[Rfam]
RNA: Archaeal large subunit ribosomal RNA, nucleotides 565 to 664
RNA sequence: GGCACGGCUUGAAAGGUAUGAAUCUCUUUGAAGGAGCUCGUGGCGACACGAUAGUACGAGAAGAGAGAACCAAAGUUGUGCCGUCCGUUUCGAAACACGG
Numbered sequence: 001g002g003c004a005c006g007g008c009u010u011g012a013a014a015g016g017u018a019u020g021a022a023u024c025u026c027u028u029u030g031a032a033g034g035a036g037c038u039c040g041u042g043g044c045g046a047c048a049c050g051a052u053a054g055u056a057c058g059a060g061a062a063g064a065g066a067g068a069a070c071c072a073a074a075g076u077u078g079u080g081c082c083g084u085c086c087g088u089u090u091c092g093a094a095a096c097a098c099g100g
Base pairs, nucleotide, nucleotide: 001082002081003080004079005078006077007076008075009074010073015071016070023066024065025064026063027062028061029060033057038051039050040049041048042047085100086099087098088097